[Rfam]
Overview
A member of the RNA family "Small nucleolar RNA snR8" from Dujonia railenensis, 161 nucleotides long. By type it is an H/ACA-box small nucleolar RNA. The literature on the family includes a 1988 paper in Mol Cell Biol by Parker et al., "Genetic analysis of small nuclear RNAs in Saccharomyces cerevisiae: viable sextuple mutant". A search with the family's covariance model found it, with a score of 98 bits.
RNA sequence: CUUUUCUUUGAUACGAAAGGUUCCUAUUCACUGCACCGUUCACUGCAAUGAAUGACUGGAGGGGAAAAGGAAACCGAGAAUAACUUUCGGAUAACGACCUCAUACUAAGUUUGCUAAAUUUUCAAUAGCAUAUUCUUGGAUUCUGCGUUCCCGAUACACCC
Number, nucleotide and partner (000 for none) at each position: 001c000002u000003u000004u000005u000006c000007u000008u000009u000010g000011a000012u000013a000014c000015g000016a000017a000018a000019g075020g074021u000022u071023c070024c000025u000026a000027u000028u000029c000030a000031c061032u060033g000034c058035a057036c000037c054038g053039u052040u051041c050042a000043c000044u000045g000046c000047a000048a000049u000050g041051a040052a039053u038054g037055a000056c000057u035058g034059g000060a032061g031062g000063g000064g000065a000066a000067a000068a000069g000070g023071a022072a000073a000074c020075c019076g000077a000078g000079a000080a000081u000082a000083a000084c000085u000086u000087u000088c153089g152090g151091a000092u000093a000094a148095c147096g146097a000098c000099c000100u000101c000102a000103u000104a000105c139106u138107a137108a000109g133110u132111u000112u130113g129114c128115u127116a000117a126118a000119u000120u000121u000122u000123c000124a000125a000126u117127a115128g114129c113130a112131u000132a110133u109134u000135c000136u000137u107138g106139g105140a000141u000142u000143c000144u000145g000146c096147g095148u094149u000150c000151c090152c089153g088154a000155u000156a000157c000158a000159c000160c000161c000